[Rfam]
RNA: U4 spliceosomal RNA
RNA sequence: AGCUUUGUGCAGUGGCAGUAAGGUAGCCAAUGAGGUUUAUUUGAGGCGCAAUUAUUGCUAAUUGAAACAGAUUCGUAGUGCACAGAGAGUGGGAUUUGUAGUUAACUACAUCUAGAUUUUUAACUCCCCACCCCACUGUUUACCAGUUGGAUAAACUUGGG
Numbered sequence: 001a002g003c004u005u006u007g008u009g010c011a012g013u014g015g016c017a018g019u020a021a022g023g024u025a026g027c028c029a030a031u032g033a034g035g036u037u038u039a040u041u042u043g044a045g046g047c048g049c050a051a052u053u054a055u056u057g058c059u060a061a062u063u064g065a066a067a068c069a070g071a072u073u074c075g076u077a078g079u080g081c082a083c084a085g086a087g088a089g090u091g092g093g094a095u096u097u098g099u100a101g102u103u104a105a106c107u108a109c110a111u112c113u114a115g116a117u118u119u120u121u122a123a124c125u126c127c128c129c130a131c132c133c134c135a136c137u138g139u140u141u142a143c144c145a146g147u148u149g150g151a152u153a154a155a156c157u158u159g160g161g
Base pairs, nucleotide, nucleotide: 020052023049024048026047027046028045034042035041084113085112086111087109089107093103094102095101096100127161128160129159